[Rfam]
Notes: The family of this 61-nucleotide RNA sequence from Nyssa sinensis is "Plastid-psbN 5UTR RNA". The base pairs follow the family's consensus structure, which was predicted with LocARNA. Taxonomically the source falls in Nyssa (Eukaryota, Tracheophyta, Magnoliopsida, Gunneridae). The family has 63 seed sequences and 2,345 matches in Rfam 15.1. It is annotated as a cis-regulatory element.
Nucleotides: 061
Base pairs, nucleotide, nucleotide: 017045018044019043021041024038025037026036027035
Number, partner (000 for none) and nucleotide at each position: 001000u002000g003000c004000a005000g006000c007000a008000c009000c010000c011000a012000u013000c014000a015000c016000a017045g018044g019043a020000a021041u022000c023000a024038u025037u026036c027035c028000c029000c030000a031000u032000c033000c034000a035027g036026g037025a038024g039000c040000u041021a042000c043019u044018u045017u046000a047000c048000c049000a050000u051000a052000u053000u054000c055000c056000g057000a058000a059000u060000u061000u